Shown here is a 97-nucleotide RNA from Virgibacillus necropolis, a member of the family "Guanidine-I riboswitch aptamer".
[Rfam]
RNA sequence: UUAAAAGUUUUCUAGGGUUCCGCAACAAGUUUGUUGGUCUGGUCCGAGAGAAAACUCACAGCUUGCUGUGUCACGGAAGGAUAAAAGCCUGGGAGAA
Number, nucleotide and partner (000 for none) at each position: 001u000002u000003a000004a000005a000006a000007g055008u054009u053010u052011u051012c050013u000014a000015g045016g044017g000018u000019u000020c042021c041022g039023c036024a035025a034026c033027a032028a000029g000030u000031u000032u027033g026034u025035u024036g023037g000038u000039c022040u000041g021042g020043u000044c016045c015046g000047a000048g000049a000050g012051a011052a010053a009054a008055c007056u000057c070058a069059c068060a067061g066062c000063u000064u000065g000066c061067u060068g059069u058070g057071u000072c092073a000074c095075g000076g000077a000078a090079g089080g088081a000082u000083a000084a000085a000086a000087g000088c080089c079090u078091g000092g072093g000094a000095g074096a000097a000

Notes: Pairs were carried over by alignment from the consensus structure. A search with the family's covariance model found it, with a score of 88 bits. A reference for the family is Barrick et al. (2004), "New RNA motifs suggest an expanded scope for riboswitches in bacterial genetic control", Proc Natl Acad Sci U S A. This family represents a conserved RNA structure found upstream of the ykkC and yxkD genes in Bacillus subtilis and related genes in other bacteria.